The family of this 45-nucleotide sequence from Adhaeribacter aerolatus is "Acido-Lenti-1 RNA". The source organism's lineage runs through Bacteria, Pseudomonadati, Cytophagia, Hymenobacteraceae and Adhaeribacter. By type it is a small RNA. A search with the family's covariance model found it, with a score of 38 bits.

[Rfam]
RNA sequence: CCCAGGGCUGCACCCUGGGCUGAGAUAGGUCGCGCCUUCAGGGCU
Dot-bracket structure: (((((((.....)))))))............((.(.....).)).
Numbered sequence: 001c002c003c004a005g006g007g008c009u010g011c012a013c014c015c016u017g018g019g020c021u022g023a024g025a026u027a028g029g030u031c032g033c034g035c036c037u038u039c040a041g042g043g044c045u
Stems, first nucleotide, its partner, number of pairs: 001019007032044002035041001